Notes:
This 129-nucleotide RNA sequence from Amphimedon queenslandica belongs to the Rfam family "Vault RNA". About the family: This family of RNAs are found as part of the enigmatic vault ribonucleoprotein complex. The complex consists of a major vault protein (MVP), two minor vault proteins (VPARP and TEP1), and several small untranslated RNA molecules. The organism belongs to Amphimedon, within Eukaryota.

RNA sequence: UUGCCAGCUAUGUCAAGUGGAUACUUCGUUCAUUAGUCAAGUGGUUAAGACAAUAGGCUCAUAACCUUUCUCCCUGGGUUCAAAUCCCAGAUGAACUCCCUCCAUCCACUGACGCAAUCUGGCAUUUUU
Numbered sequence: 001u002u003g004c005c006a007g008c009u010a011u012g013u014c015a016a017g018u019g020g021a022u023a024c025u026u027c028g029u030u031c032a033u034u035a036g037u038c039a040a041g042u043g044g045u046u047a048a049g050a051c052a053a054u055a056g057g058c059u060c061a062u063a064a065c066c067u068u069u070c071u072c073c074c075u076g077g078g079u080u081c082a083a084a085u086c087c088c089a090g091a092u093g094a095a096c097u098c099c100c101u102c103c104a105u106c107c108a109c110u111g112a113c114g115c116a117a118u119c120u121g122g123c124a125u126u127u128u129u
Stems, first nucleotide, its partner, number of pairs: 002124006012113004017109004025084002028081001
The family's consensus secondary structure is taken from published work.